[Rfam]
RNA sequence: GGCCGGGGGGGAAGAAAAAAUAUAGGCUGAAACAUAUAGUAUGGGCAAGCAGGGAGCUAAAACGAUUUGCACUUAAUCCUGGCC
Dot-bracket structure: ((((((((....................................................................))))))))
RNA: HIV gag stem loop 3 (GSL3)
Organism: Lentivirus humimdef1